[Rfam]
RNA sequence: UUACCACUCUGGCCUUUUGGCUUAGAUCAAGUGUAGUAUCUGUUCUUAAAAGUUUAACCACUUUUAUGGCCACACCGUGGCUAUUAUUGGUUAUCUAAUUUUUGCCGCCCCAGUCGAUCUGCUCUGCUUGCAACAGGUUGGCGCGAUGACCUUGCCGCUGCACUAUUGGCUUGUGUCGUCGGGGGAAC
Dot-bracket structure: .......(((((((....)))).)))....................((((((........))))))(((((((...)))))))..............................(((((((....((....))..)))))))..((((((.(..(((...........)))..)..)))))).......
Numbered sequence: 001u002u003a004c005c006a007c008u009c010u011g012g013c014c015u016u017u018u019g020g021c022u023u024a025g026a027u028c029a030a031g032u033g034u035a036g037u038a039u040c041u042g043u044u045c046u047u048a049a050a051a052g053u054u055u056a057a058c059c060a061c062u063u064u065u066a067u068g069g070c071c072a073c074a075c076c077g078u079g080g081c082u083a084u085u086a087u088u089g090g091u092u093a094u095c096u097a098a099u100u101u102u103u104g105c106c107g108c109c110c111c112a113g114u115c116g117a118u119c120u121g122c123u124c125u126g127c128u129u130g131c132a133a134c135a136g137g138u139u140g141g142c143g144c145g146a147u148g149a150c151c152u153u154g155c156c157g158c159u160g161c162a163c164u165a166u167u168g169g170c171u172u173g174u175g176u177c178g179u180c181g182g183g184g185g186a187a188c
Stems, first nucleotide, its partner, number of pairs: 008026003011022004047066006067083007114141007125132002144181006151173001154170003
U2 spliceosomal RNA: a 188-nucleotide RNA sequence from Mycena chlorophos. The source organism's lineage runs through Eukaryota, Dikarya, Agaricomycetidae, Marasmiineae and Mycena. Pairs were carried over by alignment from the consensus structure, which is taken from published work. Rfam classes the family as a spliceosomal small nuclear RNA. On this family, see Zwieb, Nucleic Acids Res 1997: "The uRNA database". U2 is a small nuclear RNA (snRNA) component of the spliceosome (involved in pre-mRNA splicing). Complementary binding between U2 snRNA (in an area lying towards the 5' end but 3' to hairpin I) and the branchpoint sequence (BPS) of the intron results the bulging out of an unpaired adenosine, on the BPS, which initiates a nucleophilic attack at the intronic 5' splice site, thus starting the first of two transesterification reactions that mediate splicing.